[Rfam]
RNA sequence: GGCUGGUCCGAUGGUAGUGGGUUAUCAGAACUUAUUAACACUAGGAUCACUAAAGUUGGUAUUCUACCCCCCCACUGCUGAAUUUGACUGGCUUUU
Numbered sequence: 001g002g003c004u005g006g007u008c009c010g011a012u013g014g015u016a017g018u019g020g021g022u023u024a025u026c027a028g029a030a031c032u033u034a035u036u037a038a039c040a041c042u043a044g045g046a047u048c049a050c051u052a053a054a055g056u057u058g059g060u061a062u063u064c065u066a067c068c069c070c071c072c073c074a075c076u077g078c079u080g081a082a083u084u085u086g087a088c089u090g091g092c093u094u095u096u
Stems, first nucleotide, its partner, number of pairs: 002092007010085002015080001016076006033061003037057002
A member of the RNA family "Y RNA" from Sorex araneus, 96 nucleotides long. Rfam's curators write: Y RNAs are components of the Ro ribonucleoprotein particle (Ro RNP), in association with Ro60 and La proteins. Pairs were carried over by alignment from the consensus structure, which is taken from published work. The source organism's lineage runs through Eukaryota, Chordata, Gnathostomata, Amniota and Sorex. It is one of the family's seed sequences. For this family Rfam cites "5'-YRNA fragments derived by processing of transcripts from specific YRNA genes and pseudogenes are abundant in human serum and plasma" (Dhahbi et al., Physiol Genomics, 2013).